[Rfam]
Annotation
Shown here is an 84-nucleotide RNA from Alligator mississippiensis, a member of the family "Mammalian CPEB3 ribozyme".
RNA sequence: AGAGGUUGCAAGUUUGAGGCCACAGCAGAAGUGCUCAGAUGGGGCACAGCCAUGUCAGAUUCCAACACAUCUGUCAAUUCUGCU
Numbered sequence: 001a002g003a004g005g006u007u008g009c010a011a012g013u014u015u016g017a018g019g020c021c022a023c024a025g026c027a028g029a030a031g032u033g034c035u036c037a038g039a040u041g042g043g044g045c046a047c048a049g050c051c052a053u054g055u056c057a058g059a060u061u062c063c064a065a066c067a068c069a070u071c072u073g074u075c076a077a078u079u080c081u082g083c084u
Base pairs, nucleotide, nucleotide: 013052018051019050020049024084025083026082027081028080029079030078031047032046033045034044035043036042056073057072058071059070060069
A search with the family's covariance model found it, with a score of 37 bits. NCBI's taxonomy places the organism under Eukaryota, Eumetazoa, Craniata, Tetrapoda, Alligator.